[Rfam]
RNA sequence: AUACACGAUAAUGAGGGGACUGAUGGAUGGACAAUGAUUAACUAAUCUAUAUUAUUAUUUGGAAUGAAAACUUCAAACUAAAAAAUAUAGGGUUAGUCCAUUCAUUUUUAUAAAUUUGUUCAUCAUUCAUCAGGUGUCCAAUUUCUAAAGAACAUAUUUAUUAUAAUAAACAGACUAAUCCUUCCAUGAACCAACUGGGAGGAUUUUUUU
Number, nucleotide and partner (000 for none) at each position: 001a000002u000003a000004c000005a000006c000007g000008a000009u000010a000011a000012u000013g000014a000015g000016g109017g108018g107019a000020c000021u000022g000023a000024u104025g103026g102027a101028u000029g000030g098031a097032c096033a000034a000035u000036g000037a000038u000039u000040a000041a000042c000043u095044a094045a093046u092047c091048u090049a088050u087051a086052u085053u084054a000055u000056u000057a000058u077059u076060u075061g074062g073063a072064a000065u070066g000067a000068a000069a000070a065071c000072u063073u062074c061075a060076a059077a058078c000079u000080a000081a000082a000083a000084a053085a052086u051087a050088u049089a000090g048091g047092g046093u045094u044095a043096g032097u031098c030099c000100a000101u027102u026103c025104a024105u000106u000107u018108u017109u016110a000111u000112a000113a000114a000115u000116u000117u000118g000119u000120u000121c000122a000123u000124c000125a000126u000127u000128c000129a000130u000131c000132a000133g000134g000135u000136g000137u000138c000139c000140a000141a000142u000143u000144u000145c000146u000147a000148a000149a000150g000151a000152a000153c000154a000155u000156a000157u000158u000159u000160a000161u000162u000163a000164u000165a000166a000167u000168a000169a000170a000171c000172a000173g000174a000175c000176u000177a205178a204179u203180c202181c201182u200183u199184c198185c197186a196187u000188g195189a000190a000191c000192c000193a000194a000195c188196u186197g185198g184199g183200a182201g181202g180203a179204u178205u177206u000207u000208u000209u000210u000